Shown here is a 44-nucleotide sequence from Jeotgalicoccus saudimassiliensis, a member of the family "PreQ1 (pre queuosine) riboswitch aptamer". It scores 53 bits against the family's covariance model. Rfam links the family to the GO term queuosine biosynthetic process. Rfam's curators write: This family is a bacterial riboswitch that binds to the metabolite preQ1, an intermediate in the biosynthesis of the modified nucleoside queuosine from GTP. One example of this riboswitch is located in the leader of the Bacillus subtilis ykvJKLM (queCDEF) operon which encodes four genes necessary for queuosine production. PreQ1 binding to the riboswitch aptamer is thought to induce premature transcription termination within the leader to down-regulate expression of these genes.

[Rfam]
RNA sequence: UUAAAACAGGUUCGCAAACUCCCUGUCAAAAAAACUAAGGAGAA
Numbered sequence: 001u002u003a004a005a006a007c008a009g010g011u012u013c014g015c016a017a018a019c020u021c022c023c024u025g026u027c028a029a030a031a032a033a034a035c036u037a038a039g040g041a042g043a044a
Stems, first nucleotide, its partner, number of pairs: 006026005016036001